RNA: ZMP/ZTP riboswitch aptamer (pfl RNA motif)
Organism: Paenibacillus xylanivorans
RNA sequence: ACGAUCAUAUGUAACUGGCGAACACGGUGAACCGUGAGGGAGCAUAUGGUUUUGUAAUAAGCCGUACGCCUGGGCAGAGGUA
Numbered sequence: 001a002c003g004a005u006c007a008u009a010u011g012u013a014a015c016u017g018g019c020g021a022a023c024a025c026g027g028u029g030a031a032c033c034g035u036g037a038g039g040g041a042g043c044a045u046a047u048g049g050u051u052u053u054g055u056a057a058u059a060a061g062c063c064g065u066a067c068g069c070c071u072g073g074g075c076a077g078a079g080g081u082a
Base pairs, nucleotide, nucleotide: 003051004050005049006048007047008046009045010044011043012042015039016038017070018069019068020067024035025034026033027032061075062074063073